[Rfam]
RNA sequence: UUACGUGUGGAAAUACCUCUUCUUUUUAGGAGCGGGAUACAUUCAUAACAGGCUGCAAUGAAAAAGGAGUUCUCAGAAAUCCCAACCUUACAGCAGAGGUUAGUAGUUCCAUAUUUUUUCCAACAUAA
Numbered sequence: 001u002u003a004c005g006u007g008u009g010g011a012a013a014u015a016c017c018u019c020u021u022c023u024u025u026u027u028a029g030g031a032g033c034g035g036g037a038u039a040c041a042u043u044c045a046u047a048a049c050a051g052g053c054u055g056c057a058a059u060g061a062a063a064a065a066g067g068a069g070u071u072c073u074c075a076g077a078a079a080u081c082c083c084a085a086c087c088u089u090a091c092a093g094c095a096g097a098g099g100u101u102a103g104u105a106g107u108u109c110c111a112u113a114u115u116u117u118u119u120c121c122a123a124c125a126u127a128a
Base pairs, nucleotide, nucleotide: 004052006050007049008048016035017034019032020031021030022029023028066121067120068119069118078107082103084101085100086099087098088097089096
This 128-nucleotide RNA from Loxodonta africana belongs to the Rfam family "Small nucleolar RNA U109".
Gene Ontology terms of the family: RNA processing and nucleolus.
NCBI's taxonomy places the organism under Eukaryota, Metazoa, Bilateria, Elephantidae, Loxodonta.
A reference for the family is Gu et al. (2005), "A novel experimental approach for systematic identification of box H/ACA snoRNAs from eukaryotes", Nucleic Acids Res.